RNA: Small nucleolar RNA snoR2/U65
Organism: Pycnococcus provasolii
RNA sequence: AGCCUUCCUGCCACGGCCAGGGUAGGCCACGGCCCAUGACCCUGGCUGCUAGUGUUGAGCUUAUAGCAAAUGCUUUUGUCUAUUUAUGAUAGGAAACAGGCUGGCUGAUUUUUAUUCAGUGCCAAGCUUGUGCCGUUUUCCGGCAAUAACAUAU
Numbered sequence: 001a002g003c004c005u006u007c008c009u010g011c012c013a014c015g016g017c018c019a020g021g022g023u024a025g026g027c028c029a030c031g032g033c034c035c036a037u038g039a040c041c042c043u044g045g046c047u048g049c050u051a052g053u054g055u056u057g058a059g060c061u062u063a064u065a066g067c068a069a070a071u072g073c074u075u076u077u078g079u080c081u082a083u084u085u086a087u088g089a090u091a092g093g094a095a096a097c098a099g100g101c102u103g104g105c106u107g108a109u110u111u112u113u114a115u116u117c118a119g120u121g122c123c124a125a126g127c128u129u130g131u132g133c134c135g136u137u138u139u140c141c142g143g144c145a146a147u148a149a150c151a152u153a154u
Base pairs, nucleotide, nucleotide: 002060003059005057008054009052014048015047016046017045018044019043021041022040023039025034026033027032076146077145078144079143080142092134093133097130098129099128102124103123104122105121